[Rfam]
RNA sequence: GUGCGGUGAUGAUCUCCAAAAAUGUGGUUUCAAUUCUCUGAAUCCAGUGAAGACAUUUCCUUGGCUGUGUCUGAGCGC
Numbered sequence: 001g002u003g004c005g006g007u008g009a010u011g012a013u014c015u016c017c018a019a020a021a022a023u024g025u026g027g028u029u030u031c032a033a034u035u036c037u038c039u040g041a042a043u044c045c046a047g048u049g050a051a052g053a054c055a056u057u058u059c060c061u062u063g064g065c066u067g068u069g070u071c072u073g074a075g076c077g078c
Stems, first nucleotide, its partner, number of pairs: 001078004

Small nucleolar RNA SNORD53/SNORD92: a 78-nucleotide RNA sequence from Aquarana catesbeiana. By type it is a C/D-box small nucleolar RNA. The literature on the family includes a 1996 paper in Cell by Kiss-Laszlo et al., "Site-specific ribose methylation of preribosomal RNA: a novel function for small nucleolar RNAs". Clan: SNORD52 clan. The match comes from Rfam's covariance-model search (55 bits).